[Rfam]
RNA: Betaproteobacteria-1 RNA
RNA sequence: CACUUGUGCGGUCGGGGUCUCAACAGCAGCGCACAAGGGGGAUUGCCUACUGUGGGGAAAGAUGUUGAAACAGGCAUAAGGGUGGCGAAGCUAGCGCCCGAACAUCGAACGGCUGGCGGGU
Dot-bracket structure: (.((((((((...............[[[[)))))))).)....(((((.]]]]........[[[[......)))))...[[[[......((((((]]]]..]]]]......))))))....